Small nucleolar RNA Z105: a 67-nucleotide RNA from Triticum urartu.
Taxonomically the source falls in Triticum (Eukaryota, Streptophyta, Petrosaviidae, commelinids).
The family has 11 seed sequences and 621 matches in Rfam 15.1.
On this family, see Chen et al., Nucleic Acids Res 2003: "The high diversity of snoRNAs in plants: identification and comparative study of 120 snoRNA genes from Oryza sativa".

RNA sequence: UUGGCAUGAUGAGGAAGACAAUAGUUGUCCGAUCUAUUUGAUGAUAAAAUCCUCCUACUCAUUCUGA
Numbered sequence: 001u002u003g004g005c006a007u008g009a010u011g012a013g014g015a016a017g018a019c020a021a022u023a024g025u026u027g028u029c030c031g032a033u034c035u036a037u038u039u040g041a042u043g044a045u046a047a048a049a050u051c052c053u054c055c056u057a058c059u060c061a062u063u064c065u066g067a
Stems, first nucleotide, its partner, number of pairs: 006062004025046001029040001
Source information: Rfam links the family to the GO terms RNA processing and nucleolus.